Description: Shown here is a 48-nucleotide RNA sequence, a member of the family "DUF3800-XI RNA". Rfam's curators put it in the seed alignment. About the family: Actinobacteria, Firmicutes, Proteobacteria, Spirochaetes (1 example). Pairs were carried over by alignment from the consensus structure, which is taken from published work.
[Rfam]
RNA sequence: UGGGCUGGUCGUAAGACCCGGAUCCCUCAAUUUGCGGGUAAGACACCC
Numbered sequence: 001u002g003g004g005c006u007g008g009u010c011g012u013a014a015g016a017c018c019c020g021g022a023u024c025c026c027u028c029a030a031u032u033u034g035c036g037g038g039u040a041a042g043a044c045a046c047c048c
Stems, first nucleotide, its partner, number of pairs: 002025003006021001007018004